[Rfam]
RNA sequence: AUGACGGUUGUGGGAGAGUGCAUGAUGACUAGCCACCGAAGGAGCAAGUUCCAUUAAACACCCUUGGAACAAAUCUCUCAGGUAGAGGAACCACAACGGGACG
Numbered sequence: 001a002u003g004a005c006g007g008u009u010g011u012g013g014g015a016g017a018g019u020g021c022a023u024g025a026u027g028a029c030u031a032g033c034c035a036c037c038g039a040a041g042g043a044g045c046a047a048g049u050u051c052c053a054u055u056a057a058a059c060a061c062c063c064u065u066g067g068a069a070c071a072a073a074u075c076u077c078u079c080a081g082g083u084a085g086a087g088g089a090a091c092c093a094c095a096a097c098g099g100g101a102c103g
Base pairs, nucleotide, nucleotide: 007097008096009095010094011093012092013091020033021032035083036082037081038079039078042077043076044075048070049069050068051067052066053065
RNA: Glycine riboswitch aptamer
Organism: Cytobacillus dafuensis